Small nucleolar RNA SNORD116: a 100-nucleotide sequence from Cebus imitator. A search with the family's covariance model found it, with a score of 65 bits. Lineage of the source: Eukaryota > Craniata > Sarcopterygii > Dipnotetrapodomorpha > Cebus. Rfam 15.1 lists 3,260 matches to the family in 170 species. Rfam links the family to the GO terms RNA processing and nucleolus. The base pairs follow the family's consensus structure, which was predicted with PFOLD. For this family Rfam cites "Identification of brain-specific and imprinted small nucleolar RNA genes exhibiting an unusual genomic organization" (Cavaille et al., Proc Natl Acad Sci U S A, 2000).
[Rfam]
RNA sequence: AGAUUGAUGAUGAGUCCUCCAAAAAAAACAUUCCUUGGAAAAGCUGAACAAAAUGAGUGAAAAUUCACACUGUCGUUCUCAAACAAACAAAAAGAAAUUU
Dot-bracket structure: (((((.......................(((((.(((...........)))...)))))....................................)))))